RNA sequence: AUGCCUCUGGAAAGCGGCGGCGACCCGACGGGUCCCGCCCGCCGAUGGGGAAAGGCACCCGAGUUACGGGCGGCCGAAUCUCUCAGGCGCCCGGUGCUCGGGUGAAGACAGAGGGGGAGGG
Numbered sequence: 001a002u003g004c005c006u007c008u009g010g011a012a013a014g015c016g017g018c019g020g021c022g023a024c025c026c027g028a029c030g031g032g033u034c035c036c037g038c039c040c041g042c043c044g045a046u047g048g049g050g051a052a053a054g055g056c057a058c059c060c061g062a063g064u065u066a067c068g069g070g071c072g073g074c075c076g077a078a079u080c081u082c083u084c085a086g087g088c089g090c091c092c093g094g095u096g097c098u099c100g101g102g103u104g105a106a107g108a109c110a111g112a113g114g115g116g117g118a119g120g121g
Stems, first nucleotide, its partner, number of pairs: 002116001004114006016039004041088003044084002048082003054075002

Record summary: The family of this 121-nucleotide RNA from Mycobacterium intermedium is "Glycine riboswitch aptamer". The base pairs follow the family's consensus structure. It scores 38 bits against the family's covariance model.